[Rfam]
RNA sequence: UUGCCUUAAACUAAUGAGUAAGGAAAACAAAGCGGGCGGCGGGAGCUGCUCGCCGCGCUAACAAAAAAUUGUGCGCAAGAAUUUAUGGAGAGGGAAUAGGCUGGCCUUUUUGUUAUUCCCAAAUCUAUUGAAAAUUAAUGAAGAAAAAGGGUCGGUUAUCCAU
Dot-bracket structure: ...(((((..........)))))........((((((((......)))))))).((((..............))))..............(.(((...((((((..((.((.(((((...................))))).)).))....)))))).))).)
RNA: U12 minor spliceosomal RNA
Organism: Asparagus officinalis